[Rfam]
RNA sequence: AUAAUGAUACUUCCGCUAUGGUAGCGGGUCGCUUGGAGGGGGCUGGUGAGAUUCCAAUGA
Numbered sequence: 001a002u003a004a005u006g007a008u009a010c011u012u013c014c015g016c017u018a019u020g021g022u023a024g025c026g027g028g029u030c031g032c033u034u035g036g037a038g039g040g041g042g043c044u045g046g047u048g049a050g051a052u053u054c055c056a057a058u059g060a
Stems, first nucleotide, its partner, number of pairs: 012057001013027004028043003032039002044056003
The family of this 60-nucleotide RNA sequence is "pemK RNA". Rfam classes the family as a cis-regulatory element.